Notes
The record is a 97-nucleotide RNA sequence from Brassica carinata, which matches "Small nucleolar RNA R30/Z108" in Rfam. The source organism's lineage runs through Eukaryota, Gunneridae, Pentapetalae, Brassiceae and Brassica. Pairs were carried over by alignment from the consensus structure, which was predicted with PFOLD. The family's RNA type in Rfam is C/D-box small nucleolar RNA.

[Rfam]
RNA sequence: GGAGAUGACGAUGAGGAUAUAUGCUCCCUCUUCUGAGUUCAGCUGAAGUAACUUGCUGGCAGAAUCGAACCUUAUAUCACUAGCCACCACUGAGUCA
Number, nucleotide and partner (000 for none) at each position: 001g000002g000003a000004g000005a000006u097007g096008a095009c094010g000011a000012u000013g000014a000015g000016g000017a000018u000019a000020u000021a000022u000023g000024c000025u000026c000027c000028c000029u000030c000031u000032u000033c000034u000035g000036a000037g000038u000039u000040c000041a000042g000043c000044u000045g000046a000047a000048g000049u000050a000051a000052c000053u000054u000055g000056c000057u000058g000059g000060c000061a000062g000063a000064a000065u000066c000067g000068a000069a000070c000071c000072u000073u000074a000075u000076a000077u000078c000079a000080c000081u000082a000083g000084c000085c000086a000087c000088c000089a000090c000091u000092g000093a000094g009095u008096c007097a006

For this family Rfam cites "Experimental RNomics. Identification of 140 Candidates for Small Non-Messenger RNAs in the Plant Arabidopsis thaliana" (Marker et al., Curr Biol, 2002). About the family: snoR30 is a C/D box small nucleolar RNA which acts as a methylation guide for 18S ribosomal RNA in plants. Rfam 15.1 lists 626 matches to the family in 219 species.